[Rfam]
Source information:
A member of the RNA family "c-di-AMP riboswitch aptamer (ydaO/yuaA leader)" from Actinoplanes campanulatus, 138 nucleotides long. Lineage of the source: Bacteria > Actinomycetes > Micromonosporales > Micromonosporaceae > Actinoplanes. The match comes from Rfam's covariance-model search (59 bits). About the family: This family represents a conserved RNA structure found upstream of the ydaO and yuaA genes in Bacillus subtilis and related genes in other bacteria.

RNA sequence: GUCUCUCCCGCGCCACCCGGCUUCCACGGGUGACGGAGCCGGGAGCGACCUCGGGGUGAAGCCGCACCCACCCGCGGCCGGGCAUGCCUUCCCGCCCGAACCCGACAGCUAACCUCGCAGGCGUGCCGGAGGGAUCUC
Dot-bracket structure: ..........((((...(.(......).)((((.(....((((......))))(((.....((((........))))..((((..........))))...))).........).)))).))))...............